RNA: permuted transfer-messenger RNA
Organism: Alphaproteobacteria bacterium
RNA sequence: AAUGAUAAACGUUGUGAGUAAUAGGUACUGUGGACUCGGGGGCGGAGCCCGACACUUCCACCAAGAUUUAUGGGAGUGAAUAGAUUCGACAUGGGCUGAAAGGCAUAGCUUUCAUUCGGGGCGGUUUCCGUUAUAGAACCAAUAAAUAUAAAUGCGAAAAAUGAAUUAGUCGCAGAGAACGAUAACGAGGUAAGGGCGUUCGCUAAUGACAAUAUCCAGAGUGAUGUUGCGUUGGCUGCCUGA
Dot-bracket structure: (((((........(((.........(.(.(((...(((((.......)))))(((((((............)))))))...........)))).)........))).....)))))((((......)))).................................................................................................................